[Rfam]
RNA sequence: CAAGCGAAACGGCAAACUUAUCGAAAGAUAAGGACGCAAAACUAUAGGGCCUUACCGAUGAGGAUGGCAGCCAGUUACCGAA
Numbered sequence: 001c002a003a004g005c006g007a008a009a010c011g012g013c014a015a016a017c018u019u020a021u022c023g024a025a026a027g028a029u030a031a032g033g034a035c036g037c038a039a040a041a042c043u044a045u046a047g048g049g050c051c052u053u054a055c056c057g058a059u060g061a062g063g064a065u066g067g068c069a070g071c072c073a074g075u076u077a078c079c080g081a082a
Stems, first nucleotide, its partner, number of pairs: 012037002017032006040076004047072002049068003056062001
RNA: c-di-GMP-I riboswitch aptamer
Organism: Alkalibaculum sporogenes